[Rfam]
RNA sequence: ACCACAAACCCUUUACGACGGAUCGUCCGGCACGUACCUGCCGGUGAAGGAGACAACA
Numbered sequence: 001a002c003c004a005c006a007a008a009c010c011c012u013u014u015a016c017g018a019c020g021g022a023u024c025g026u027c028c029g030g031c032a033c034g035u036a037c038c039u040g041c042c043g044g045u046g047a048a049g050g051a052g053a054c055a056a057c058a
Stems, first nucleotide, its partner, number of pairs: 009050002012048004027044006

This 58-nucleotide RNA sequence from Streptomyces oceani belongs to the Rfam family "msiK RNA". The match comes from Rfam's covariance-model search (61 bits). Lineage of the source: Bacteria > Bacillati > Actinomycetota > Actinomycetes > Streptomyces.